[Rfam]
The record is a 197-nucleotide RNA sequence from Aminipila butyrica, which matches "Group II catalytic intron D1-D4-5" in Rfam. The source organism's lineage runs through Bacteria, Bacillati, Peptostreptococcales, Anaerovoracaceae and Aminipila. Pairs were carried over by alignment from the consensus structure. Group II introns are found in rRNA, tRNA and mRNA of organelles in fungi, plants and protists, and also in mRNA in bacteria.
Nucleotides: 197
Base pairs, nucleotide, nucleotide: 018052020051021050022049023048031043032042033041034040053189054188055187056186063107064106065105066104067099068098069097070096071095072094073093074092075091076090077089114185115184116183117182118181123175124174126172127171128147129146130145135143136142151170152169153168154167155166156165157164158163
Number, partner (000 for none) and nucleotide at each position: 001000u002000a003000g004000a005000a006000c007000u008000g009000a010000u011000a012000a013000u014000c015000c016000g017000a018052c019000a020051g021050g022049u023048g024000g025000a026000a027000u028000g029000a030000u031043g032042g033041g034040g035000u036000a037000a038000c039000g040034c041033c042032c043031u044000g045000a046000a047000g048023c049022g050021c051020c052018g053189c054188c055187c056186u057000a058000a059000u060000a061000c062000u063107c064106c065105g066104a067099u068098a069097u070096g071095c072094a073093u074092a075091g076090u077089c078000a079000a080000c081000g082000c083000a084000a085000u086000c087000a088000c089077g090076g091075c092074u093073g094072u095071g096070u097069g098068u099067a100000a101000a102000g103000c104066u105065c106064g107063g108000a109000g110000a111000a112000g113000u114185c115184g116183g117182c118181a119000g120000a121000g122000a123175g124174c125000a126172g127171c128147c129146c130145a131000a132000a133000c134000a135143g136142g137000u138000c139000a140000a141000g142136c143135u144000g145130u146129g147128g148000a149000a150000a151170g152169c153168u154167g155166u156165c157164c158163a159000g160000a161000g162000g163158u164157g165156g166155a167154c168153g169152g170151u171127g172126c173000g174124g175123c176000c177000u178000a179000u180000a181118u182117g183116c184115c185114g186056g187055g188054g189053g190000u191000c192000u193000a194000c195000a196000a197000a